[Rfam]
RNA: DUF3800-I RNA
RNA sequence: UGGAAUUGCAGAUAAAGCGAUGCCGUAUCCUUGUGAAACCGAAUGAGCGUUUCAGCAAAAUGUGCUGUCGCCGGACACAAGGGCCGCCUUUUUAGGGGGUUUUAUAAGCUA
Numbered sequence: 001u002g003g004a005a006u007u008g009c010a011g012a013u014a015a016a017g018c019g020a021u022g023c024c025g026u027a028u029c030c031u032u033g034u035g036a037a038a039c040c041g042a043a044u045g046a047g048c049g050u051u052u053c054a055g056c057a058a059a060a061u062g063u064g065c066u067g068u069c070g071c072c073g074g075a076c077a078c079a080a081g082g083g084c085c086g087c088c089u090u091u092u093u094a095g096g097g098g099g100u101u102u103u104a105u106a107a108g109c110u111a
Stems, first nucleotide, its partner, number of pairs: 007027003011023001012021002030081006039074003042051003055071002058068001060066001082101004087096003